RNA sequence: GGUCUAUGAUGAGUUUUGGCAUGUAUUAUCUGAGUAUAAAUUCGAACAUUAUCAGUUCAGCUCUAGAUUUACUUUGAGACCUG
Numbered sequence: 001g002g003u004c005u006a007u008g009a010u011g012a013g014u015u016u017u018g019g020c021a022u023g024u025a026u027u028a029u030c031u032g033a034g035u036a037u038a039a040a041u042u043c044g045a046a047c048a049u050u051a052u053c054a055g056u057u058c059a060g061c062u063c064u065a066g067a068u069u070u071a072c073u074u075u076g077a078g079a080c081c082u083g
Stems, first nucleotide, its partner, number of pairs: 001081004